RNA sequence: GAAAGACCGGAGUUUUCCGGUUGGGUUUUAUUCAAAACCCCAAUCAACUAGU
Numbered sequence: 001g002a003a004a005g006a007c008c009g010g011a012g013u014u015u016u017c018c019g020g021u022u023g024g025g026u027u028u029u030a031u032u033c034a035a036a037a038c039c040c041c042a043a044u045c046a047a048c049u050a051g052u
Base pairs, nucleotide, nucleotide: 005022006021007020008019009018010017011016023040024039025038026037027036028035
RNA: S4-Clostridia ribosomal protein leader